[Rfam]
RNA: msiK RNA
RNA sequence: CUCUGACACUCUUCACGACGGAUCGUCCGGCACGUACCUGCCGGUGAAGGGAUCGAUGG
Numbered sequence: 001c002u003c004u005g006a007c008a009c010u011c012u013u014c015a016c017g018a019c020g021g022a023u024c025g026u027c028c029g030g031c032a033c034g035u036a037c038c039u040g041c042c043g044g045u046g047a048a049g050g051g052a053u054c055g056a057u058g059g
Stems, first nucleotide, its partner, number of pairs: 009051007027044006